[Rfam]
RNA: mir-2 microRNA precursor family
RNA sequence: UCGCUCACAAAGUGGCUGUUGUGUGUGUGUGUCAAUCCAUAUCACAGCCAGCUUUGAUGAGCGUCG
Numbered sequence: 001u002c003g004c005u006c007a008c009a010a011a012g013u014g015g016c017u018g019u020u021g022u023g024u025g026u027g028u029g030u031g032u033c034a035a036u037c038c039a040u041a042u043c044a045c046a047g048c049c050a051g052c053u054u055u056g057a058u059g060a061g062c063g064u065c066g
Stems, first nucleotide, its partner, number of pairs: 005060003008056005013050007021042001024041003